[Rfam]
RNA sequence: UGACUUUAAUCGCUGAAUCUGCAUGUGUUUUUCGUGCAGGGCGGGGGACCCAAUUUUUCAUGGGGUGAGUCUUGUACAUUACGUACAAGAGGGGAUACUCCAGUCCCUAAUCCGUCAGCUAACCCCGUAAGCGUAGAAGUAUUUAGGA
Numbered sequence: 001u002g003a004c005u006u007u008a009a010u011c012g013c014u015g016a017a018u019c020u021g022c023a024u025g026u027g028u029u030u031u032u033c034g035u036g037c038a039g040g041g042c043g044g045g046g047g048a049c050c051c052a053a054u055u056u057u058u059c060a061u062g063g064g065g066u067g068a069g070u071c072u073u074g075u076a077c078a079u080u081a082c083g084u085a086c087a088a089g090a091g092g093g094g095a096u097a098c099u100c101c102a103g104u105c106c107c108u109a110a111u112c113c114g115u116c117a118g119c120u121a122a123c124c125c126c127g128u129a130a131g132c133g134u135a136g137a138a139g140u141a142u143u144u145a146g147g148a
Stems, first nucleotide, its partner, number of pairs: 011133004018040008041128006051062002063113003071089004092107004
Shown here is a 148-nucleotide RNA from Fictibacillus aquaticus, a member of the family "c-di-AMP riboswitch aptamer (ydaO/yuaA leader)".